This 107-nucleotide RNA from Phtheirospermum japonicum belongs to the Rfam family "Plant small nucleolar RNA R71". The family's consensus secondary structure was predicted with PFOLD. Rfam classes the family as a C/D-box small nucleolar RNA. For this family Rfam cites "Plant snoRNAs: functional evolution and new modes of gene expression" (Brown et al., Trends Plant Sci, 2003). Taxonomically the source falls in Phtheirospermum (Eukaryota, Streptophyta, Embryophyta, lamiids).

RNA sequence: UUUCUGUGAUGUGGGAAAGCUUGAAAAAGUGUCUUGUAGCACUCCCAUGCUUCAUGCAAUAACUCACCAUCUUGCUGAUCAAAAUUGGCAAUUUGUCUCCUAAGAUA
Dot-bracket structure: (.((((..................................................((..............))..........................)).)).)